[Rfam]
RNA sequence: CACCUUGCGCCCCGUUUCCCCCCGGCCUAUAUCUGUCUUGUUCGGGUUCGCCCGGACUAUGGCGAUAAACGCACCUGGAAUAAGCGGAUCGGACCCGGGGGCGGUACCCGGCGGCUCCACCAAUACUCGCUCGUUGGGCGCGGAGGGGGCCGAAACAGGAUCGACGAACGUCUAAAGAGGCCAGCUUUCGCUCGGUGAGGUACCACCGUUAUCGGUCCAAAAGUACAGUUGCCAACGACAACCGUGCUCCGGUCGCUCUGGCUGCGUAAGCAGCUCGGGUAACCGAAACUUAAGCCCUUGCGCUUAGCCGCGUAAGGCGGGGUUCGCAGGUACCUGGCAACAGAAACCUGCACC
Numbered sequence: 001c002a003c004c005u006u007g008c009g010c011c012c013c014g015u016u017u018c019c020c021c022c023c024g025g026c027c028u029a030u031a032u033c034u035g036u037c038u039u040g041u042u043c044g045g046g047u048u049c050g051c052c053c054g055g056a057c058u059a060u061g062g063c064g065a066u067a068a069a070c071g072c073a074c075c076u077g078g079a080a081u082a083a084g085c086g087g088a089u090c091g092g093a094c095c096c097g098g099g100g101g102c103g104g105u106a107c108c109c110g111g112c113g114g115c116u117c118c119a120c121c122a123a124u125a126c127u128c129g130c131u132c133g134u135u136g137g138g139c140g141c142g143g144a145g146g147g148g149g150c151c152g153a154a155a156c157a158g159g160a161u162c163g164a165c166g167a168a169c170g171u172c173u174a175a176a177g178a179g180g181c182c183a184g185c186u187u188u189c190g191c192u193c194g195g196u197g198a199g200g201u202a203c204c205a206c207c208g209u210u211a212u213c214g215g216u217c218c219a220a221a222a223g224u225a226c227a228g229u230u231g232c233c234a235a236c237g238a239c240a241a242c243c244g245u246g247c248u249c250c251g252g253u254c255g256c257u258c259u260g261g262c263u264g265c266g267u268a269a270g271c272a273g274c275u276c277g278g279g280u281a282a283c284c285g286a287a288a289c290u291u292a293a294g295c296c297c298u299u300g301c302g303c304u305u306a307g308c309c310g311c312g313u314a315a316g317g318c319g320g321g322g323u324u325c326g327c328a329g330g331u332a333c334c335u336g337g338c339a340a341c342a343g344a345a346a347c348c349u350g351c352a353c354c
Base pairs, nucleotide, nucleotide: 040057041056042055043054044053045052046051061192062191063190064189065188071185072184074180075179076178085170086169089167090166091165095111096110097109098108099107112152113151114150115149116148117147118146193208194207195206196205199218200217202216203215204214320335321334322333323332326351327350328349329348330347331346
RNA: Alphaproteobacteria transfer-messenger RNA
Organism: Gemmobacter aquaticus